[Rfam]
RNA sequence: UAUGUCAAUGAUGACUCCAUAGACCUGUACCGAAUGCGGAGAUGAUCGCAUCAAGUAACAUCUAAGGGGUUGAGGCAUU
Numbered sequence: 001u002a003u004g005u006c007a008a009u010g011a012u013g014a015c016u017c018c019a020u021a022g023a024c025c026u027g028u029a030c031c032g033a034a035u036g037c038g039g040a041g042a043u044g045a046u047c048g049c050a051u052c053a054a055g056u057a058a059c060a061u062c063u064a065a066g067g068g069g070u071u072g073a074g075g076c077a078u079u
Stems, first nucleotide, its partner, number of pairs: 002078005